This 87-nucleotide sequence from Gossypium hirsutum belongs to the Rfam family "MIR7486 microRNA precursor family". The base pairs follow the family's consensus structure, which was predicted with RNAalifold. Lineage of the source: Eukaryota > Euphyllophyta > Spermatophyta > Magnoliopsida > Gossypium. The family has 9 seed sequences and 10,132 matches in Rfam 15.1.
RNA sequence: CACGUCAGCGCGCUUUGCUGAUGUGGCAACAAAUCGCCCCCUCGUGGACGCGAUUUGUUGCCAUGUCAGCAAAGCGCGUUGACGUGG
Numbered sequence: 001c002a003c004g005u006c007a008g009c010g011c012g013c014u015u016u017g018c019u020g021a022u023g024u025g026g027c028a029a030c031a032a033a034u035c036g037c038c039c040c041c042u043c044g045u046g047g048a049c050g051c052g053a054u055u056u057g058u059u060g061c062c063a064u065g066u067c068a069g070c071a072a073a074g075c076g077c078g079u080u081g082a083c084g085u086g087g
Stems, first nucleotide, its partner, number of pairs: 001086021023064015040047002